[Rfam]
RNA: Plastid-rps12 3UTR RNA
RNA sequence: GGUUUCUAUUGGUGCAAAUCCAAUCACCUCAAUUUGAGAUGAGAAGCAAUUCCCCAUUGGUAACAAAUAGUUAUCCAUUAAGCGGAGGAAAUAGUAA
Numbered sequence: 001g002g003u004u005u006c007u008a009u010u011g012g013u014g015c016a017a018a019u020c021c022a023a024u025c026a027c028c029u030c031a032a033u034u035u036g037a038g039a040u041g042a043g044a045a046g047c048a049a050u051u052c053c054c055c056a057u058u059g060g061u062a063a064c065a066a067a068u069a070g071u072u073a074u075c076c077a078u079u080a081a082g083c084g085g086a087g088g089a090a091a092u093a094g095u096a097a
Stems, first nucleotide, its partner, number of pairs: 009023004052087001054085002056078002059075006